RNA: tRNA
RNA sequence: GCCCCCGUCGCCCAACGGCAGAGGCACCGGUCUGAGGGGCCGGACGGUACGGGUUCGAAUCCCGUCGGGGGCA
Numbered sequence: 001g002c003c004c005c006c007g008u009c010g011c012c013c014a015a016c017g018g019c020a021g022a023g024g025c026a027c028c029g030g031u032c033u034g035a036g037g038g039g040c041c042g043g044a045c046g047g048u049a050c051g052g053g054u055u056c057g058a059a060u061c062c063c064g065u066c067g068g069g070g071g072c073a
Base pairs, nucleotide, nucleotide: 001072002071003070004069005068006067007066010025011024012023027043028042029041030040031039049065050064051063052062053061